[Rfam]
RNA sequence: ACAGCGCAUGCCGAAAAGCUUUAAAUAGAGUAGGCA
Numbered sequence: 001a002c003a004g005c006g007c008a009u010g011c012c013g014a015a016a017a018g019c020u021u022u023a024a025a026u027a028g029a030g031u032a033g034g035c036a
Stems, first nucleotide, its partner, number of pairs: 003020003010035003
RNA: DUF805b RNA